[Rfam]
Nucleotides: 083
Stems, first nucleotide, its partner, number of pairs: 005078002009074006016067005022061002026058008
Number, partner (000 for none) and nucleotide at each position: 001000g002000u003000u004000u005078c006077u007000c008000g009074g010073c011072a012071g013070g014069u015000c016067g017066g018065g019064a020063u021000c022061g023060g024000c025000c026058g027057c028056a029055a030054u031053g032052u033051u034000g035000g036000u037000u038000u039000u040000u041000a042000u043000c044000u045000g046000a047000a048000u049000a050000a051033a052032a053031u054030a055029u056028u057027g058026c059000a060023c061022u062000u063020g064019u065018c066017c067016c068000g069014g070013c071012c072011u073010g074009u075000u076000g077006a078005g079000c080000a081000c082000u083000g